[Rfam]
The record is a 106-nucleotide sequence from Macaca fascicularis, which matches "Mitochondrial DNA control region secondary structure A" in Rfam.

RNA sequence: GUCUUCCCUGAGAACUCAUAAUCGUAUAUGUGAGUCUUAGGUGUGAAUUUAUACUCUUUGUGAAUGUACUUCGUGCAUUACUGCUAGUCCCCAUGAAUAAUAUAUA
Dot-bracket structure: ....(.(.((.((...((...((((....))))(.....((((........))))...)....(((((.....)))))...))....))..)).).).........
The match comes from Rfam's covariance-model search (49 bits).